This 95-nucleotide RNA sequence from Dokdonella koreensis belongs to the Rfam family "TPP riboswitch aptamer (THI element)". Taxonomically the source falls in Dokdonella koreensis (Bacteria, Pseudomonadati, Gammaproteobacteria, Rhodanobacteraceae). The family's consensus secondary structure is taken from published work. Vitamin B(1) in its active form thiamin pyrophosphate (TPP) is an essential coenzyme that is synthesised by coupling of pyrimidine and thiazole moieties in bacteria. The match comes from Rfam's covariance-model search (66 bits).
[Rfam]
RNA sequence: GUCGAGAAGCGGGGGUGCCGGUCCGUGCCGGCUGAGAGAGUCCCUUCGAACCUGAUCCGGUUAGCACCGGUGUAGGGAGCUUCGCCGAGCGGCCU
Numbered sequence: 001g002u003c004g005a006g007a008a009g010c011g012g013g014g015g016u017g018c019c020g021g022u023c024c025g026u027g028c029c030g031g032c033u034g035a036g037a038g039a040g041u042c043c044c045u046u047c048g049a050a051c052c053u054g055a056u057c058c059g060g061u062u063a064g065c066a067c068c069g070g071u072g073u074a075g076g077g078a079g080c081u082u083c084g085c086c087g088a089g090c091g092g093c094c095u
Stems, first nucleotide, its partner, number of pairs: 006083005011045004016039001017032005051076004057070004